RNA: terC RNA
RNA sequence: AUCGGUGACCGGGCCCCUCUGGCGAAAGUUGCGGCGCUUUCGCGAUGUCGGCACUGACG
Numbered sequence: 001a002u003c004g005g006u007g008a009c010c011g012g013g014c015c016c017c018u019c020u021g022g023c024g025a026a027a028g029u030u031g032c033g034g035c036g037c038u039u040u041c042g043c044g045a046u047g048u049c050g051g052c053a054c055u056g057a058c059g
Stems, first nucleotide, its partner, number of pairs: 006053002009051004022043008